A member of the RNA family "Lysine riboswitch aptamer" from Butyrivibrio fibrisolvens, 177 nucleotides long. The base pairs follow the family's consensus structure, which is taken from published work. Taxonomically the source falls in Butyrivibrio (Bacteria, Bacillota, Clostridia, Lachnospiraceae). A search with the family's covariance model found it, with a score of 116 bits. Its family is annotated with lysine biosynthetic process in the Gene Ontology. Riboswitches are metabolite binding domains within certain messenger RNAs that serve as precision sensors for their corresponding targets.
RNA sequence: UUUAGAGAUAGAGGUUGCGUGUUUUAUAAGUACAUUCUUGGAUGCUGCAGCAGUAAAAGAAGAGAAUGGAAAGGAAAGCGCGCCGAAAGGUUCGGAAGCAGCUGCAUUCCGGAUUCUUGGGCAUACAUUUAAUAGGUGUAUGACUGUCAUCAGUAAUGAUGGGGCGCUAUCCGAUAA
Numbered sequence: 001u002u003u004a005g006a007g008a009u010a011g012a013g014g015u016u017g018c019g020u021g022u023u024u025u026a027u028a029a030g031u032a033c034a035u036u037c038u039u040g041g042a043u044g045c046u047g048c049a050g051c052a053g054u055a056a057a058a059g060a061a062g063a064g065a066a067u068g069g070a071a072a073g074g075a076a077a078g079c080g081c082g083c084c085g086a087a088a089g090g091u092u093c094g095g096a097a098g099c100a101g102c103u104g105c106a107u108u109c110c111g112g113a114u115u116c117u118u119g120g121g122c123a124u125a126c127a128u129u130u131a132a133u134a135g136g137u138g139u140a141u142g143a144c145u146g147u148c149a150u151c152a153g154u155a156a157u158g159a160u161g162g163g164g165c166g167c168u169a170u171c172c173g174a175u176a177a
Base pairs, nucleotide, nucleotide: 007171008170009169010168011167017083018082019081020080021079022078023077024076025075033068034067035066036065037064038063039062087118088117089116090115092113093112095110097108098107119145120144122142123141124140125139126138127137128136129135147162148161149160150159151158152157